[Rfam]
RNA sequence: AAAGCACAGUAAGUGGUCGCUUGAAAAAGAGGAAAGUCCGAGCUACAAUAAGACAGAGUUCCAUCUAACGGAUGGCUAGGGUGACCUAAGGGAAAGUGUAACAGAAAGCAAACUACCUUAUUUUAUAAGGUAAAGGUGAAACGGUGGGGUAAGAGCCCACCAGCACUCUUGGAAACUAGAGUGGCUAGAUAAACCCAACUCGUAGCAAGAAUGGGCGGUUUUAGUCUUAUAAUUAAACCAUUCGCUAAAAUUUGUAUGUAAAUGCAAAUUUAGAUAAAUGACCACUCACGACAGAACUCGGCUUAUCGCUGUGCUUUUUAC
Numbered sequence: 001a002a003a004g005c006a007c008a009g010u011a012a013g014u015g016g017u018c019g020c021u022u023g024a025a026a027a028a029g030a031g032g033a034a035a036g037u038c039c040g041a042g043c044u045a046c047a048a049u050a051a052g053a054c055a056g057a058g059u060u061c062c063a064u065c066u067a068a069c070g071g072a073u074g075g076c077u078a079g080g081g082u083g084a085c086c087u088a089a090g091g092g093a094a095a096g097u098g099u100a101a102c103a104g105a106a107a108g109c110a111a112a113c114u115a116c117c118u119u120a121u122u123u124u125a126u127a128a129g130g131u132a133a134a135g136g137u138g139a140a141a142c143g144g145u146g147g148g149g150u151a152a153g154a155g156c157c158c159a160c161c162a163g164c165a166c167u168c169u170u171g172g173a174a175a176c177u178a179g180a181g182u183g184g185c186u187a188g189a190u191a192a193a194c195c196c197a198a199c200u201c202g203u204a205g206c207a208a209g210a211a212u213g214g215g216c217g218g219u220u221u222u223a224g225u226c227u228u229a230u231a232a233u234u235a236a237a238c239c240a241u242u243c244g245c246u247a248a249a250a251u252u253u254g255u256a257u258g259u260a261a262a263u264g265c266a267a268a269u270u271u272a273g274a275u276a277a278a279u280g281a282c283c284a285c286u287c288a289c290g291a292c293a294g295a296a297c298u299c300g301g302c303u304u305a306u307c308g309c310u311g312u313g314c315u316u317u318u319u320a321c
Stems, first nucleotide, its partner, number of pairs: 001317010011306001012286007020029003034304003038301005043205004056201005061075005076090001077088004091196002096194002098190002113135002115131007143161006163185001164183006171176001209243004217239005250269008